[Rfam]
RNA sequence: GGCGAUAAAGUGCGGCGUGCAAUAGACACAACGGACCCGGGGGCAGUACCCGGCGGCUCCACCAAAAAUCGCGGGAAACCGCGCUUUCUGACGGGGCCGAACCAGGAUCGACGUGUGUUGAAAGACGCAGUUUUCGCUCGGGCUGAGUAUCCCGUAAAAAUGUUCACAACACACAAGUGCCAACGACAACGAAGCACUCGCACUCGCUGCGUAA
Numbered sequence: 001g002g003c004g005a006u007a008a009a010g011u012g013c014g015g016c017g018u019g020c021a022a023u024a025g026a027c028a029c030a031a032c033g034g035a036c037c038c039g040g041g042g043g044c045a046g047u048a049c050c051c052g053g054c055g056g057c058u059c060c061a062c063c064a065a066a067a068a069u070c071g072c073g074g075g076a077a078a079c080c081g082c083g084c085u086u087u088c089u090g091a092c093g094g095g096g097c098c099g100a101a102c103c104a105g106g107a108u109c110g111a112c113g114u115g116u117g118u119u120g121a122a123a124g125a126c127g128c129a130g131u132u133u134u135c136g137c138u139c140g141g142g143c144u145g146a147g148u149a150u151c152c153c154g155u156a157a158a159a160a161u162g163u164u165c166a167c168a169a170c171a172c173a174c175a176a177g178u179g180c181c182a183a184c185g186a187c188a189a190c191g192a193a194g195c196a197c198u199c200g201c202a203c204u205c206g207c208u209g210c211g212u213a214a
Base pairs, nucleotide, nucleotide: 001138002137003136004135005134015128016127017126018125027117028116029115031114032113033112037053038052039051040050041049054099055098056097057096058095059094060093139154140153141152142151
This 214-nucleotide RNA sequence from Erythrobacter sp. 3-20A1M belongs to the Rfam family "permuted transfer-messenger RNA". It is annotated as a non-coding RNA gene. A reference for the family is Williams (2002), "The tmRNA Website: invasion by an intron", Nucleic Acids Res. The match comes from Rfam's covariance-model search (138 bits). NCBI's taxonomy places the organism under Bacteria, Pseudomonadota, Sphingomonadales, Erythrobacteraceae, Erythrobacter.